[Rfam]
RNA sequence: UUCUGGGACACCCUUCCCCACCGAAGGGCAACUAUCUGAGAGGGUAGCGAUA
Dot-bracket structure: ..........((((((......))))))...((((((....)))))).....
A member of the RNA family "serC leader", 52 nucleotides long. The literature on the family includes a 2005 paper in Genome Biol by Corbino et al., "Evidence for a second class of S-adenosylmethionine riboswitches and other regulatory RNA motifs in alpha-proteobacteria". By type it is a cis-regulatory leader. Rfam's curators write: This family is a putative regulatory RNA structure that is found upstream of the serC-serA operon in some alpha-proteobacteria. The final stem of the structure overlaps the ribosome binding site of the serC reading frame. The base pairs follow the family's consensus structure.